[Rfam]
RNA: Clostridiales-1 RNA
Organism: Firmicutes bacterium AF22-6AC
RNA sequence: UAUAAUAAACUCAUCCAUAAAAUGCAUCACGUCUGCUUGCAGACAGGGGAUGCAUUCUAUGAGAGGAGUAAACAGACAUGAGUAUGAAGGACGAUAGUCCGGAAUACGAAUGGAUGUUGCAAUUUUGAGAGUGCGUAGCACGAAAAAUCGCAUUAUUAUG
Numbered sequence: 001u002a003u004a005a006u007a008a009a010c011u012c013a014u015c016c017a018u019a020a021a022a023u024g025c026a027u028c029a030c031g032u033c034u035g036c037u038u039g040c041a042g043a044c045a046g047g048g049g050a051u052g053c054a055u056u057c058u059a060u061g062a063g064a065g066g067a068g069u070a071a072a073c074a075g076a077c078a079u080g081a082g083u084a085u086g087a088a089g090g091a092c093g094a095u096a097g098u099c100c101g102g103a104a105u106a107c108g109a110a111u112g113g114a115u116g117u118u119g120c121a122a123u124u125u126u127g128a129g130a131g132u133g134c135g136u137a138g139c140a141c142g143a144a145a146a147a148u149c150g151c152a153u154u155a156u157u158a159u160g
Stems, first nucleotide, its partner, number of pairs: 001160007010068003016061004021056008030047001031044005072117003077112003082107004089100004120150001122148005131141004
Dot-bracket structure: (((((((..(((...((((.((((((((.((((((....)))))..).)))))))).))))....)))...(((..(((..((((...((((....))))...))))..)))..)))..(.(((((....((((...))))..))))).)...)))))))